RNA sequence: UAACGAUAAGACUAAACCAUCCGUGAGGGUGGGACGGAAAGCCCAUUGGGUCUCGAUCAGAGACAGCCGGGAUGCCGAA
Numbered sequence: 001u002a003a004c005g006a007u008a009a010g011a012c013u014a015a016a017c018c019a020u021c022c023g024u025g026a027g028g029g030u031g032g033g034a035c036g037g038a039a040a041g042c043c044c045a046u047u048g049g050g051u052c053u054c055g056a057u058c059a060g061a062g063a064c065a066g067c068c069g070g071g072a073u074g075c076c077g078a079a
Base pairs, nucleotide, nucleotide: 012037013036017032018031019030020029021028022027040073042071043070047069048068049067050064051063052062054060